[Rfam]
RNA: Small Cajal body specific RNA 3
RNA sequence: AGUGGAAGCUGCGGCAUCAACCCUGUAGACAAAGAAGAAAAUACCUUUUGUCUGCAGAAGGCAGCGAUCCUACAUGAACAUGGAGGUCUCUGUCUGACUUAGGAAAGCUCGCUAAGUCUGAUCGUUCCCCUCCAUACACU
Number, nucleotide and partner (000 for none) at each position: 001a000002g000003u000004g070005g069006a068007a000008g065009c064010u063011g062012c061013g000014g000015c000016a000017u000018c000019a000020a000021c000022c000023c000024u056025g055026u054027a053028g052029a051030c050031a000032a000033a000034g000035a047036a046037g045038a000039a000040a000041a000042u000043a000044c000045c037046u036047u035048u000049u000050g030051u029052c028053u027054g026055c025056a024057g000058a000059a000060g000061g012062c011063a010064g009065c008066g000067a000068u006069c005070c004071u000072a000073c000074a000075u000076g000077a000078a000079c000080a000081u000082g133083g132084a131085g130086g129087u000088c000089u000090c124091u000092g122093u121094c120095u000096g118097a117098c116099u115100u114101a113102g112103g000104a000105a000106a000107g000108c000109u000110c000111g000112c102113u101114a100115a099116g098117u097118c096119u000120g094121a093122u092123c000124g090125u000126u000127c000128c000129c086130c085131u084132c083133c082134a000135u000136a000137c000138a000139c000140u000